[Rfam]
About this RNA
Rfam assigns this 94-nucleotide RNA sequence from Helianthus annuus to the family "Small nucleolar RNA R16". The match comes from Rfam's covariance-model search (60 bits). Rfam links the family to the GO terms RNA processing and nucleolus. Lineage of the source: Eukaryota > Streptophyta > Embryophyta > Magnoliopsida > Helianthus.
RNA sequence: AUUGGCAGAUGAUGAAAUAAUAAUACCAGUUUUAUGCUUAACACUCUGAUUAAACUAUGGUGACUACAAACUCCGCUUAUUAUCUGAUGCCAGA
Numbered sequence: 001a002u003u004g005g006c007a008g009a010u011g012a013u014g015a016a017a018u019a020a021u022a023a024u025a026c027c028a029g030u031u032u033u034a035u036g037c038u039u040a041a042c043a044c045u046c047u048g049a050u051u052a053a054a055c056u057a058u059g060g061u062g063a064c065u066a067c068a069a070a071c072u073c074c075g076c077u078u079a080u081u082a083u084c085u086g087a088u089g090c091c092a093g094a
Stems, first nucleotide, its partner, number of pairs: 003092005